[Rfam]
RNA sequence: UUAAUUUGCCGCUUCGCUGGAAUCCUGCCCGACCCGUUGCUAUAGGUCAAAACACCCUGCCGCUCAUGGCAUAACAACAUGCAGCGCUAUUCGCUGCCAUAACACAUGCAAACAGGGAGAGACAUCGCAAUGCACAC
Numbered sequence: 001u002u003a004a005u006u007u008g009c010c011g012c013u014u015c016g017c018u019g020g021a022a023u024c025c026u027g028c029c030c031g032a033c034c035c036g037u038u039g040c041u042a043u044a045g046g047u048c049a050a051a052a053c054a055c056c057c058u059g060c061c062g063c064u065c066a067u068g069g070c071a072u073a074a075c076a077a078c079a080u081g082c083a084g085c086g087c088u089a090u091u092c093g094c095u096g097c098c099a100u101a102a103c104a105c106a107u108g109c110a111a112a113c114a115g116g117g118a119g120a121g122a123c124a125u126c127g128c129a130a131u132g133c134a135c136a137c
Stems, first nucleotide, its partner, number of pairs: 013117003019029002038106002058071005081097005